[Rfam]
The family of this 211-nucleotide RNA sequence from Kingdonia uniflora is "U2 spliceosomal RNA". The family is grouped with related families in Rfam's "U2 clan". The organism belongs to Kingdonia, within Eukaryota. The base pairs follow the family's consensus structure, which is taken from published work. Rfam describes the family as follows. U2 is a small nuclear RNA (snRNA) component of the spliceosome (involved in pre-mRNA splicing). Complementary binding between U2 snRNA (in an area lying towards the 5' end but 3' to hairpin I) and the branchpoint sequence (BPS) of the intron results the bulging out of an unpaired adenosine, on the BPS, which initiates a nucleophilic attack at the intronic 5' splice site, thus starting the first of two transesterification reactions that mediate splicing. A search with the family's covariance model found it, with a score of 127 bits.
RNA sequence: AUACCUUUCUUGGCCUUUUGGCUAAGAUUAAUGUAGUAUUUGUUCUUAUCAGUUUAAUAUCUGAUACGUGAGCCAAUAUUGACUCACACAAUAUUAAAUUGAUUUUUCAUUGGGGGAGGGUCCACUACAAUUGCUUGCUAUUGGGGGCUCUCGAGUGUCGCCUUUGCGUUGCACUAUGCGUUGCACUACUGCAAAGGCUGGCGCACCCCUA
Numbered sequence: 001a002u003a004c005c006u007u008u009c010u011u012g013g014c015c016u017u018u019u020g021g022c023u024a025a026g027a028u029u030a031a032u033g034u035a036g037u038a039u040u041u042g043u044u045c046u047u048a049u050c051a052g053u054u055u056a057a058u059a060u061c062u063g064a065u066a067c068g069u070g071a072g073c074c075a076a077u078a079u080u081g082a083c084u085c086a087c088a089c090a091a092u093a094u095u096a097a098a099u100u101g102a103u104u105u106u107u108c109a110u111u112g113g114g115g116g117a118g119g120g121u122c123c124a125c126u127a128c129a130a131u132u133g134c135u136u137g138c139u140a141u142u143g144g145g146g147g148c149u150c151u152c153g154a155g156u157g158u159c160g161c162c163u164u165u166g167c168g169u170u171g172c173a174c175u176a177u178g179c180g181u182u183g184c185a186c187u188a189c190u191g192c193a194a195a196g197g198c199u200g201g202c203g204c205a206c207c208c209c210u211a
Stems, first nucleotide, its partner, number of pairs: 008027003012023004047066006068087005074081001116152008130141002133138001155204006162196006